A member of the RNA family "Group II catalytic intron D1-D4-3" from Lachnospiraceae bacterium 5_1_57FAA, 170 nucleotides long. It scores 123 bits against the family's covariance model. Gene Ontology term of the family: Group II intron splicing. NCBI's taxonomy places the organism under Bacteria, Bacillati, Bacillota, Clostridia, Lachnospiraceae. The pairing is the family consensus, mapped onto this sequence.
RNA sequence: AUUAACGUGAGGGGAAUCUGAAGGAAGGUGUACGCAAAUCUCUGGUCUGACGAACAGAAAUCACAUCAGGCUACAGUUAAGGAUAAGGUUGCUUUUCAAACCAAAGUCCAAUAACUACUCGGAAUUAGCUGUGGUAAAUGUGGCAGAUGGAUAGAGAGAAGGAAGCGUGU
Numbered sequence: 001a002u003u004a005a006c007g008u009g010a011g012g013g014g015a016a017u018c019u020g021a022a023g024g025a026a027g028g029u030g031u032a033c034g035c036a037a038a039u040c041u042c043u044g045g046u047c048u049g050a051c052g053a054a055c056a057g058a059a060a061u062c063a064c065a066u067c068a069g070g071c072u073a074c075a076g077u078u079a080a081g082g083a084u085a086a087g088g089u090u091g092c093u094u095u096u097c098a099a100a101c102c103a104a105a106g107u108c109c110a111a112u113a114a115c116u117a118c119u120c121g122g123a124a125u126u127a128g129c130u131g132u133g134g135u136a137a138a139u140g141u142g143g144c145a146g147a148u149g150g151a152u153a154g155a156g157a158g159a160a161g162g163a164a165g166c167g168u169g170u
Base pairs, nucleotide, nucleotide: 002015003014006011028170029169030168031167035162039157040156041155042154043153044152045148046147047146048145049144061143062142063141064140065139070135071134072133074131075130076129077128078127079126080125081109082108083107084106087102088101089100090099